[Rfam]
Shown here is a 35-nucleotide RNA, a member of the family "DUF805b RNA".
The base pairs follow the family's consensus structure, which is taken from published work.
RNA sequence: AGGGCGGAACCCGAAAAGCCCGAACAGAGUAAGGA
Numbered sequence: 001a002g003g004g005c006g007g008a009a010c011c012c013g014a015a016a017a018g019c020c021c022g023a024a025c026a027g028a029g030u031a032a033g034g035a
Base pairs, nucleotide, nucleotide: 002021003020004019005018010034011033
Dot-bracket structure: .((((....[[......))))...........]].